RNA sequence: UAGAACUGUUAUUCCAAGAAGUCAAAUGACUGGGUAACGCCAGAAAGGGCUUCCCCUAAUACUCCGACAUGCAUGGAGAUUGGCAAAAAUCCGAUUGUAUGAAGCUCGGUGAAGUCGGCCAAAGACUACCGUAACAAGUAACGGUGACGAAAUCUCUCUGGAGGUGGAGAGUGUAGUUGAUAGGUCGGGGGUCUAUAAA
Numbered sequence: 001u002a003g004a005a006c007u008g009u010u011a012u013u014c015c016a017a018g019a020a021g022u023c024a025a026a027u028g029a030c031u032g033g034g035u036a037a038c039g040c041c042a043g044a045a046a047g048g049g050c051u052u053c054c055c056c057u058a059a060u061a062c063u064c065c066g067a068c069a070u071g072c073a074u075g076g077a078g079a080u081u082g083g084c085a086a087a088a089a090u091c092c093g094a095u096u097g098u099a100u101g102a103a104g105c106u107c108g109g110u111g112a113a114g115u116c117g118g119c120c121a122a123a124g125a126c127u128a129c130c131g132u133a134a135c136a137a138g139u140a141a142c143g144g145u146g147a148c149g150a151a152a153u154c155u156c157u158c159u160g161g162a163g164g165u166g167g168a169g170a171g172u173g174u175a176g177u178u179g180a181u182a183g184g185u186c187g188g189g190g191g192u193c194u195a196u197a198a199a
Base pairs, nucleotide, nucleotide: 018053019052020051021050022049023048031043033041034040054191055190056189057188064109065108066107067106068101069100070099071098072097073096078091079090080089081088116187117186118185119184120183124178125177126176127175128174129173130149131148132147137145154171155170156169157168158167159166160165
RNA: Group II catalytic intron D1-D4-5